[Rfam]
RNA sequence: UCAUAUUACAUGUUUUGUGCGUGAAUCUAAUUCGAAGGCUUAUGUAGUAGAUUAUCAAAUCUUAUUUUGCUGUUGGAUUAGAUUCACGCACAAACUCGUAAUCUGUCU
Numbered sequence: 001u002c003a004u005a006u007u008a009c010a011u012g013u014u015u016u017g018u019g020c021g022u023g024a025a026u027c028u029a030a031u032u033c034g035a036a037g038g039c040u041u042a043u044g045u046a047g048u049a050g051a052u053u054a055u056c057a058a059a060u061c062u063u064a065u066u067u068u069g070c071u072g073u074u075g076g077a078u079u080a081g082a083u084u085c086a087c088g089c090a091c092a093a094a095c096u097c098g099u100a101a102u103c104u105g106u107c108u
Stems, first nucleotide, its partner, number of pairs: 002105002005102003012095002015093013029079003033075002
Shown here is a 108-nucleotide sequence from Microthlaspi erraticum, a member of the family "MIR403 microRNA precursor family". Taxonomically the source falls in Microthlaspi (Eukaryota, Tracheophyta, Mesangiospermae, Brassicaceae). For this family Rfam cites "High throughput approaches reveal splicing of primary microRNA transcripts and tissue specific expression of mature microRNAs in Vitis vinifera" (Mica et al., BMC Genomics, 2009).